RNA sequence: AGAGCAUUGAGAGGAGCCUUCCUUAGUACGAGAGGACCGGGAAGGACGCACCGCUGGUGUACCAGUUAUCGUACCAACGGUAAACGCUGGGUAGCCAAGUGCGGAGCGGAUAACCGCUGAAAGCAUCUAAGUGGGAAGCCCACCUCAAGAUGAGUGCUCUCACUACUAUUAGUAGGUAAGGUCACGGGCAGAACACCCGUUCUUAGGCGGUAGGUGGAAGUGCAGUAAUGUAUGCAGCCGAGCCGUGCUAAUAGACCGAGG
Numbered sequence: 001a002g003a004g005c006a007u008u009g010a011g012a013g014g015a016g017c018c019u020u021c022c023u024u025a026g027u028a029c030g031a032g033a034g035g036a037c038c039g040g041g042a043a044g045g046a047c048g049c050a051c052c053g054c055u056g057g058u059g060u061a062c063c064a065g066u067u068a069u070c071g072u073a074c075c076a077a078c079g080g081u082a083a084a085c086g087c088u089g090g091g092u093a094g095c096c097a098a099g100u101g102c103g104g105a106g107c108g109g110a111u112a113a114c115c116g117c118u119g120a121a122a123g124c125a126u127c128u129a130a131g132u133g134g135g136a137a138g139c140c141c142a143c144c145u146c147a148a149g150a151u152g153a154g155u156g157c158u159c160u161c162a163c164u165a166c167u168a169u170u171a172g173u174a175g176g177u178a179a180g181g182u183c184a185c186g187g188g189c190a191g192a193a194c195a196c197c198c199g200u201u202c203u204u205a206g207g208c209g210g211u212a213g214g215u216g217g218a219a220g221u222g223c224a225g226u227a228a229u230g231u232a233u234g235c236a237g238c239c240g241a242g243c244c245g246u247g248c249u250a251a252u253a254g255a256c257c258g259a260g261g
Base pairs, nucleotide, nucleotide: 001160002159003158004157005156006155007154008153011146012145013144014143017045018044019043020042021041022040023039047103048102049101050100051099055097056096057095062090063089064088065087066086067082068081069080070079071078072077108140109139114134115133116132117131118130163175164174165173177259180257181256182255183254184200185199186198187197188196204250205249206248207246208245209244210243211242213239214238220233221232222231223230224229
The record is a 261-nucleotide part of an RNA from Trichormus azollae, which matches "Bacterial large subunit ribosomal RNA" in Rfam.
The family is grouped with related families in Rfam's "LSU clan".
Its family is annotated with ribosome and structural constituent of ribosome in the Gene Ontology.
The base pairs follow the family's consensus structure, which is taken from published work.
The match comes from Rfam's covariance-model search (2701 bits).
Taxonomically the source falls in Trichormus azollae (Bacteria, Cyanobacteriota, Nostocaceae, Trichormus).